[Rfam]
RNA: Bacterial RNase P class A
RNA sequence: CAAGUAAAUCGCCUUAUCGCUGUUCAUGCAAAUGAACGGAGGAAAGUCCGAACACCAUAGUGCAACAUAGUGGUUAAUGGCCACCAGUCGUGAGAUUAGGAAAAGUGCAACAGAAAGUAUGUACAGGUAAUGCUGUAGUGAAACCCGGUAAACUCUAUGUGGUGCAAUGUCAUGUAAACUAGCGCUCCGAUACUUAUCGGGAGAAGGCGGCACGUUUGAUGCUAGAGGGUAGGCAGCUAAAGUGUACAGGUAACUGUACAUUCAGAUAAAUGAUAAGGGUGUUUAAUUUUUUAAACAUACAGGAUUCGGCUUAUAGAUUUACUUAAGCA
Dot-bracket structure: .(((((((((((((((((.((((((((....))))))))....[[[.[[[[[((((...[[[[.((((((((((.....)))))(((((....)))).)((...((((.......................................))..)))))))))))))...((((.......(((((.....................((((.]]]]))))...)))))......))))......((((((((....))))))))..........)))))))..........................]]]]]]]].).))))))))).....
Numbered sequence: 001c002a003a004g005u006a007a008a009u010c011g012c013c014u015u016a017u018c019g020c021u022g023u024u025c026a027u028g029c030a031a032a033u034g035a036a037c038g039g040a041g042g043a044a045a046g047u048c049c050g051a052a053c054a055c056c057a058u059a060g061u062g063c064a065a066c067a068u069a070g071u072g073g074u075u076a077a078u079g080g081c082c083a084c085c086a087g088u089c090g091u092g093a094g095a096u097u098a099g100g101a102a103a104a105g106u107g108c109a110a111c112a113g114a115a116a117g118u119a120u121g122u123a124c125a126g127g128u129a130a131u132g133c134u135g136u137a138g139u140g141a142a143a144c145c146c147g148g149u150a151a152a153c154u155c156u157a158u159g160u161g162g163u164g165c166a167a168u169g170u171c172a173u174g175u176a177a178a179c180u181a182g183c184g185c186u187c188c189g190a191u192a193c194u195u196a197u198c199g200g201g202a203g204a205a206g207g208c209g210g211c212a213c214g215u216u217u218g219a220u221g222c223u224a225g226a227g228g229g230u231a232g233g234c235a236g237c238u239a240a241a242g243u244g245u246a247c248a249g250g251u252a253a254c255u256g257u258a259c260a261u262u263c264a265g266a267u268a269a270a271u272g273a274u275a276a277g278g279g280u281g282u283u284u285a286a287u288u289u290u291u292u293a294a295a296c297a298u299a300c301a302g303g304a305u306u307c308g309g310c311u312u313a314u315a316g317a318u319u320u321a322c323u324u325a326a327g328c329a
Stems, first nucleotide, its partner, number of pairs: 002324009011314001012278007020039008044312003048309005053164004060213004065160005070084005085099001086097004100155002105153002107149002168235004179225005205217004242261008